[Rfam]
RNA sequence: GUAUGUGUGUGGAUGGUGUUCAGCACCAAGGACAGGCAUGUUUGUAUGUGUGUGGAUGGCGUUCAGCACCAAGGACAGGCAUGUUUGUCU
Numbered sequence: 001g002u003a004u005g006u007g008u009g010u011g012g013a014u015g016g017u018g019u020u021c022a023g024c025a026c027c028a029a030g031g032a033c034a035g036g037c038a039u040g041u042u043u044g045u046a047u048g049u050g051u052g053u054g055g056a057u058g059g060c061g062u063u064c065a066g067c068a069c070c071a072a073g074g075a076c077a078g079g080c081a082u083g084u085u086u087g088u089c090u
Stems, first nucleotide, its partner, number of pairs: 001080002004077003014071007022063003026059003030051001032049003036045003
This 90-nucleotide sequence from Branchiostoma belcheri belongs to the Rfam family "mir-2060 microRNA precursor family". Gene Ontology terms of the family: miRNA-mediated post-transcriptional gene silencing and RISC complex. The source organism's lineage runs through Eukaryota, Bilateria, Cephalochordata, Amphioxiformes and Branchiostoma. It scores 88 bits against the family's covariance model. The family's consensus secondary structure was predicted with RNAalifold.